[Rfam]
RNA: Glycine riboswitch aptamer
Organism: Clostridiales bacterium oral taxon 876
RNA sequence: AAACUCUGGAAAGUCCCACAUGGGCGCCGAAGAAGAAAAACAUUUUAUUAUGUUAAAACUUUCAGGUAAACAUACAGAGAUAUGAAG
Dot-bracket structure: .(.(((((......(((....))).(((((..(((...(((((......)))))....))))).))).......))))).)......
Numbered sequence: 001a002a003a004c005u006c007u008g009g010a011a012a013g014u015c016c017c018a019c020a021u022g023g024g025c026g027c028c029g030a031a032g033a034a035g036a037a038a039a040a041c042a043u044u045u046u047a048u049u050a051u052g053u054u055a056a057a058a059c060u061u062u063c064a065g066g067u068a069a070a071c072a073u074a075c076a077g078a079g080a081u082a083u084g085a086a087g
Stems, first nucleotide, its partner, number of pairs: 002081001004079005015024003026067003029063002033061003039054005